[Rfam]
RNA sequence: GGUCACAAAUUGGAGGCUGCAGCAGCAGCACUCAUGGCAUGGCCCUGUCAGAUUCCAACAAAUUUGCAAAUUCUGCU
Numbered sequence: 001g002g003u004c005a006c007a008a009a010u011u012g013g014a015g016g017c018u019g020c021a022g023c024a025g026c027a028g029c030a031c032u033c034a035u036g037g038c039a040u041g042g043c044c045c046u047g048u049c050a051g052a053u054u055c056c057a058a059c060a061a062a063u064u065u066g067c068a069a070a071u072u073c074u075g076c077u
Base pairs, nucleotide, nucleotide: 013045015044016043017042018041021077022076023075024074025073027071028040049066050065051064052063053062054061

Rfam assigns this 77-nucleotide sequence from Alligator mississippiensis to the family "Mammalian CPEB3 ribozyme". It scores 35 bits against the family's covariance model. Its family is annotated with RNA nuclease activity in the Gene Ontology. Rfam's curators write: The mammalian CPEB3 ribozyme is a self cleaving RNA located in the second intron of the CPEB3 gene which belongs to a family of genes regulating messenger RNA polyadenylation. This ribozyme is highly conserved and found only in mammals. The CPEB3 ribozyme is structurally and biochemically related to the human hepatitis delta virus (HDV) ribozyme and the HDV ribozyme is proposed to have arisen from the human transcriptome. The base pairs follow the family's consensus structure, which is taken from published work. Taxonomically the source falls in Alligator (Eukaryota, Teleostomi, Euteleostomi, Alligatoridae).